The family of this 147-nucleotide RNA from Herminiimonas sp. is "ZMP/ZTP riboswitch aptamer (pfl RNA motif)". The match comes from Rfam's covariance-model search (53 bits). The source organism's lineage runs through Bacteria, Pseudomonadati, Pseudomonadota, Oxalobacteraceae and Herminiimonas.
RNA sequence: UUCGUCUCACGUGACUGGCGAAAAGCGGCACGCUGCAAGGCAGGGAGAAUCGAUGCAAUCCAUUCGACCUGCGGGCGGCGACUGCCGAAAGGUGGAGUUCCACCGGGAAGCGUGAGAUUUCAACCGCCGUGCGCCUGGGUAGCCAAG
Number, nucleotide and partner (000 for none) at each position: 001u000002u000003c000004g118005u117006c116007u115008c114009a113010c112011g111012u110013g000014a000015c107016u106017g135018g134019c133020g132021a000022a000023a000024a000025g000026c000027g000028g000029c000030a000031c000032g000033c000034u000035g000036c000037a000038a000039g000040g000041c000042a000043g000044g000045g000046a000047g000048a000049a000050u000051c000052g000053a000054u000055g000056c000057a000058a000059u000060c000061c000062a000063u000064u000065c000066g000067a000068c000069c000070u000071g000072c000073g000074g000075g000076c000077g000078g000079c000080g000081a000082c000083u000084g000085c000086c000087g000088a000089a000090a000091g000092g103093u102094g101095g100096a000097g000098u000099u000100c095101c094102a093103c092104c000105g000106g016107g015108a000109a000110g012111c011112g010113u009114g008115a007116g006117a005118u004119u000120u000121c000122a000123a000124c142125c000126g140127c139128c138129g000130u000131g000132c020133g019134c018135c017136u000137g000138g128139g127140u126141a000142g124143c000144c000145a000146a000147g000